Shown here is an 87-nucleotide RNA sequence from Nicotiana tabacum, a member of the family "mir-156 microRNA precursor family". Pairs were carried over by alignment from the consensus structure, which was predicted with PFOLD. Rfam describes the family as follows. This family represents the plant microRNA (miRNA) precursor mir-156.
RNA sequence: GUGACAGAAGAGAGUGAGCACACAUGGUGUUUAAUUUCUUGCAUAUGAAAUACUUGAAGCUAUGCGUGCUCACUCUCUAUUUGUCAC
Numbered sequence: 001g002u003g004a005c006a007g008a009a010g011a012g013a014g015u016g017a018g019c020a021c022a023c024a025u026g027g028u029g030u031u032u033a034a035u036u037u038c039u040u041g042c043a044u045a046u047g048a049a050a051u052a053c054u055u056g057a058a059g060c061u062a063u064g065c066g067u068g069c070u071c072a073c074u075c076u077c078u079a080u081u082u083g084u085c086a087c
Base pairs, nucleotide, nucleotide: 001087002086003085004084005083006082007081008080010077011076012075013074014073015072016071017070018069019068020067021066023064024063025062

On this family, see Reinhart et al., Genes Dev 2002: "MicroRNAs in plants". Gene Ontology terms of the family: miRNA-mediated post-transcriptional gene silencing and RISC complex. The organism belongs to Nicotiana, within Eukaryota.